[Rfam]
Notes: The family of this 199-nucleotide sequence from Dichanthelium oligosanthes is "MIR1435 microRNA precursor family". The match comes from Rfam's covariance-model search (110 bits). NCBI's taxonomy places the organism under Eukaryota, Embryophyta, Euphyllophyta, Magnoliopsida, Dichanthelium.

RNA sequence: UAGUUUUGUUCUAAGUCAAACUUCAACUUUGACCGAGUUUAUAGAAAAAUAUAUAUUAACAUCUACAAUACCAAAUAAAUGCACUAACAAUACAUGUUUCAUGGUGGAUUUAACGAAACUGAUAUGGUGUUGUAGAUGUUGGUGAAUUUUUCUAUAAAUCUGGUCAAACUUACUGAAGAUUGACUUAAGACAAAAAUAA
Numbered sequence: 001u002a003g004u005u006u007u008g009u010u011c012u013a014a015g016u017c018a019a020a021c022u023u024c025a026a027c028u029u030u031g032a033c034c035g036a037g038u039u040u041a042u043a044g045a046a047a048a049a050u051a052u053a054u055a056u057u058a059a060c061a062u063c064u065a066c067a068a069u070a071c072c073a074a075a076u077a078a079a080u081g082c083a084c085u086a087a088c089a090a091u092a093c094a095u096g097u098u099u100c101a102u103g104g105u106g107g108a109u110u111u112a113a114c115g116a117a118a119c120u121g122a123u124a125u126g127g128u129g130u131u132g133u134a135g136a137u138g139u140u141g142g143u144g145a146a147u148u149u150u151u152c153u154a155u156a157a158a159u160c161u162g163g164u165c166a167a168a169c170u171u172a173c174u175g176a177a178g179a180u181u182g183a184c185u186u187a188a189g190a191c192a193a194a195a196a197u198a199a
Stems, first nucleotide, its partner, number of pairs: 005194005012187008021178005028168005042154008054144003058140010071127003075123002